[Rfam]
This 79-nucleotide RNA sequence belongs to the Rfam family "RAGATH-10 RNA".
RNA sequence: AACACCCCAUCUCGAGUCGACCCAUCCGAGUGUCGACCAGUGUUUUUCACACGAGCAUCCGCUCGGGUGGGGAGGAAGA
Dot-bracket structure: ....((((((((...((((((.(......).))))))..((((.....))))((((....)))))))))))).......

By type it is a small RNA.